This 124-nucleotide sequence from Camellia sinensis belongs to the Rfam family "mir-166 microRNA precursor family".
About the family: This family represents the plant microRNA (miRNA) precursor mir-166.
The match comes from Rfam's covariance-model search (71 bits).
A reference for the family is Ambros (2001), "microRNAs: tiny regulators with great potential", Cell.
RNA sequence: CUUUAGGGGAAUGUUGGCUGGCUCGAGGCUUUGCUUUGCUUUUUCAAAUACAAGCAAAGGGAUACCUCUGAAUGGAAUGAGAUUAUCUCACAAAGGCUUCGGACCAGGCUUCAUUCCCUUCAAA
Number, nucleotide and partner (000 for none) at each position: 001c000002u123003u122004u000005a120006g119007g118008g117009g116010a115011a114012u113013g112014u000015u000016g109017g000018c107019u106020g105021g104022c000023u000024c101025g100026a099027g098028g097029c096030u095031u094032u093033g000034c000035u000036u000037u000038g000039c000040u000041u000042u000043u000044u000045c000046a000047a000048a000049u000050a000051c000052a000053a000054g000055c000056a000057a000058a000059g000060g000061g000062a000063u000064a000065c000066c000067u000068c000069u000070g000071a000072a000073u000074g000075g000076a000077a000078u000079g000080a000081g000082a000083u000084u000085a000086u000087c000088u000089c000090a000091c000092a000093a032094a031095g030096g029097c028098u027099u026100c025101g024102g000103a000104c021105c020106a019107g018108g000109c016110u000111u000112c013113a012114u011115u010116c009117c008118c007119u006120u005121c000122a003123a002124a000